[Rfam]
RNA sequence: CCGCCGCUUCCAUCACAACGGAUCGUCCGGCACGUACCUGCCGGUGAAGGAGAAACACAA
Numbered sequence: 001c002c003g004c005c006g007c008u009u010c011c012a013u014c015a016c017a018a019c020g021g022a023u024c025g026u027c028c029g030g031c032a033c034g035u036a037c038c039u040g041c042c043g044g045u046g047a048a049g050g051a052g053a054a055a056c057a058c059a060a
Base pairs, nucleotide, nucleotide: 009051010050011049013047014046015045027044028043029042030041031040032039
Description
This 60-nucleotide sequence from Microbacterium sp. CGR2 belongs to the Rfam family "msiK RNA". The base pairs follow the family's consensus structure, which is taken from published work. It scores 63 bits against the family's covariance model. The organism belongs to Microbacterium, within Bacteria. It is annotated as a cis-regulatory element.